[Rfam]
RNA sequence: GUUUUUGUGAUGAUUGUAAAAGUAAUUCUUCGUACUAAAAGCCAUUAGCUUGAUAGACUCACAUUACACCCAUAGAAUCUGAGCAAG
Numbered sequence: 001g002u003u004u005u006u007g008u009g010a011u012g013a014u015u016g017u018a019a020a021a022g023u024a025a026u027u028c029u030u031c032g033u034a035c036u037a038a039a040a041g042c043c044a045u046u047a048g049c050u051u052g053a054u055a056g057a058c059u060c061a062c063a064u065u066a067c068a069c070c071c072a073u074a075g076a077a078u079c080u081g082a083g084c085a086a087g
Stems, first nucleotide, its partner, number of pairs: 003087002006085002

The record is an 87-nucleotide RNA sequence from Arabis nemorensis, which matches "Small nucleolar RNA snoR8a" in Rfam. The family's RNA type in Rfam is C/D-box small nucleolar RNA. Gene Ontology terms of the family: RNA processing and nucleolus. The family's consensus secondary structure was predicted with WAR. It scores 81 bits against the family's covariance model. The organism belongs to Arabis, within Eukaryota. The literature on the family includes a 2001 paper in RNA by Brown et al., "Multiple snoRNA gene clusters from Arabidopsis".